[Rfam]
RNA: SAM riboswitch aptamer (S box leader)
Organism: Bacillus sp. PK3_68
RNA sequence: CUCUUAUUGAGAGCGGUGGAGGGAUUAGGCCCGAUGAAGCCCGGCAACCUUCAGACAAAUUGUCUGAAACGGUGCUAAUUCCUGCAGGCGUAUGUGCCUGAGAGAUAAGAG
Numbered sequence: 001c002u003c004u005u006a007u008u009g010a011g012a013g014c015g016g017u018g019g020a021g022g023g024a025u026u027a028g029g030c031c032c033g034a035u036g037a038a039g040c041c042c043g044g045c046a047a048c049c050u051u052c053a054g055a056c057a058a059a060u061u062g063u064c065u066g067a068a069a070c071g072g073u074g075c076u077a078a079u080u081c082c083u084g085c086a087g088g089c090g091u092a093u094g095u096g097c098c099u100g101a102g103a104g105a106u107a108a109g110a111g
Base pairs, nucleotide, nucleotide: 001111002110003109004108005107006106007105008104013042015041016040017039021032022031023030026084027083028082029081043076044075045074046073048072049071050068051067052066053065054064055063080103085100086099087098088097089096090095